[Rfam]
RNA sequence: GGUUUUUGUGAGAACUUUUUUGAAUCAAGUAUCUUAAUGAUUCAAAAAGUUCUCAACAGUU
Numbered sequence: 001g002g003u004u005u006u007u008g009u010g011a012g013a014a015c016u017u018u019u020u021u022g023a024a025u026c027a028a029g030u031a032u033c034u035u036a037a038u039g040a041u042u043c044a045a046a047a048a049g050u051u052c053u054c055a056a057c058a059g060u061u
Stems, first nucleotide, its partner, number of pairs: 009055009019046009
Plastid-ccsA-ndhD-2 3UTR RNA: a 61-nucleotide sequence from Klainedoxa gabonensis.
Rfam's curators put it in the seed alignment.
A reference for the family is Richter et al. (2023), "Retrograde signaling in plants: A critical review focusing on the GUN pathway and beyond", Plant Commun.
About the family: Plastid ccsA-ndhD-2 is a non-coding RNA (ncRNA) recognised in plastids. It was found in the three prime untranslated region (3UTR) of ccsA and ndhD genes, its 3UTR location suggests a role in transcript maturation.
By type it is a cis-regulatory element.